[Rfam]
RNA sequence: CCUGUGGAGUGUCAUACGAACCGCAGUAGCGAGCUUUUGGCGAGACGGGACACGUUGAAGCAGGAA
Dot-bracket structure: (((((...(((((.......(((.....((.........))....))))))))......)))))..
Shown here is a 66-nucleotide RNA from Desmospora activa, a member of the family "RAGATH-18 RNA".
Rfam describes the family as follows. Actinobacteria, Firmicutes, Fusobacteria, Thermotogae (1 example).
Taxonomically the source falls in Desmospora activa (Bacteria, Bacillati, Bacillota, Bacilli).
It is annotated as a small RNA.